[Rfam]
RNA sequence: GGUCAGUGAUGAUUGGUAAAAGGUCUGAUUGCACUGAAUGUCACAGCCCCUUUCUUGCCCUCUACUCCCAGCAGCCCAUUUUUUUCCUAGCACAUUGAAGUUAUGUGCAUGGGAUAAUGGGGCAGCUGAUAAUUUAGGAUUCUGCCAGUGUGUGUUCCCGAGAGUGAACGGUUCACAGCUGACUGCUAUCCAACAGAACCUGUGAUGCAGGAGUCUUGAUGAGUGGCGGAUGGGUGUGACAGUGCAUGAUCUCAAGUUUUCAAUCUGAGACC
Numbered sequence: 001g002g003u004c005a006g007u008g009a010u011g012a013u014u015g016g017u018a019a020a021a022g023g024u025c026u027g028a029u030u031g032c033a034c035u036g037a038a039u040g041u042c043a044c045a046g047c048c049c050c051u052u053u054c055u056u057g058c059c060c061u062c063u064a065c066u067c068c069c070a071g072c073a074g075c076c077c078a079u080u081u082u083u084u085u086c087c088u089a090g091c092a093c094a095u096u097g098a099a100g101u102u103a104u105g106u107g108c109a110u111g112g113g114a115u116a117a118u119g120g121g122g123c124a125g126c127u128g129a130u131a132a133u134u135u136a137g138g139a140u141u142c143u144g145c146c147a148g149u150g151u152g153u154g155u156u157c158c159c160g161a162g163a164g165u166g167a168a169c170g171g172u173u174c175a176c177a178g179c180u181g182a183c184u185g186c187u188a189u190c191c192a193a194c195a196g197a198a199c200c201u202g203u204g205a206u207g208c209a210g211g212a213g214u215c216u217u218g219a220u221g222a223g224u225g226g227c228g229g230a231u232g233g234g235u236g237u238g239a240c241a242g243u244g245c246a247u248g249a250u251c252u253c254a255a256g257u258u259u260u261c262a263a264u265c266u267g268a269g270a271c272c
Base pairs, nucleotide, nucleotide: 001272002271003270004269038252040250041249042248047228049226050225052223053222054221065213066212067211068210069128070127071126072125074123075122086113087112088111089110093107094106095105138190139189140188143185151177152176153175154174157171158170

Small Cajal body specific RNA 6: a 272-nucleotide RNA sequence from Mus spicilegus. By type it is a small Cajal body RNA. From the family's description: U88 is small Cajal body specific RNA (scaRNA). scaRNAs are a novel class of small nuclear RNAs which localise to the Cajal bodies. U88 is found associated with both fibrillarin and Gar1p and co-localises with coilin in Cajal bodies. The base pairs follow the family's consensus structure, which is taken from published work. For this family Rfam cites "Cajal body-specific small nuclear RNAs: a novel class of 2'-O-methylation and pseudouridylation guide RNAs" (Darzacq et al., EMBO J, 2002). Lineage of the source: Eukaryota > Euteleostomi > Tetrapoda > Muroidea > Mus. It scores 127 bits against the family's covariance model.